[Rfam]
RNA sequence: AUAUGCAAAUGCAUGUGCUUGCAUGCACAUGCAUGUGAGUGCUUGCAUGCACAUGCAUGUGAGUGCAUGCAUGCAAACGGAUGUGAGUGCAUGCAUGCAUGCAAAUGCAUGUGAGUGCAUGCAUGCAAAUGCAUGUGAGUGAUGCAUGCAUGCAAAUGCAUGUGAGUGCAUGU
Numbered sequence: 001a002u003a004u005g006c007a008a009a010u011g012c013a014u015g016u017g018c019u020u021g022c023a024u025g026c027a028c029a030u031g032c033a034u035g036u037g038a039g040u041g042c043u044u045g046c047a048u049g050c051a052c053a054u055g056c057a058u059g060u061g062a063g064u065g066c067a068u069g070c071a072u073g074c075a076a077a078c079g080g081a082u083g084u085g086a087g088u089g090c091a092u093g094c095a096u097g098c099a100u101g102c103a104a105a106u107g108c109a110u111g112u113g114a115g116u117g118c119a120u121g122c123a124u125g126c127a128a129a130u131g132c133a134u135g136u137g138a139g140u141g142a143u144g145c146a147u148g149c150a151u152g153c154a155a156a157u158g159c160a161u162g163u164g165a166g167u168g169c170a171u172g173u
Stems, first nucleotide, its partner, number of pairs: 001173007012073004020067005026061010037050001039048003078125002082121003087118004094111007129161005134155001139151003